The family of this 47-nucleotide sequence from Polerovirus SCYLV is "Exoribonuclease-resistant RNA (xrRNA) plant-infecting virus (class 3)". NCBI's taxonomy places the organism under Viruses, Sobelivirales, Solemoviridae, Polerovirus, Polerovirus SCYLV. The literature on the family includes a 2024 paper in bioRxiv [Preprint] by Gezelle et al., "The pseudoknot structure of a viral RNA reveals a conserved mechanism for programmed exoribonuclease resistance". Rfam links the family to the GO term viral RNA genome replication. The base pairs follow the family's consensus structure, which is taken from published work.
RNA sequence: UCCCGAGCCACCAUAUAGGUUGCGAGAGUGGAACGGGCAGUCCUAAC
Dot-bracket structure: [[[....[[..[...((((......]...]]...]]]....))))..

Exoribonuclease-resistant RNA (xrRNA) plant-infecting virus (class 3) is a ncRNA that was reported in Plant viruses.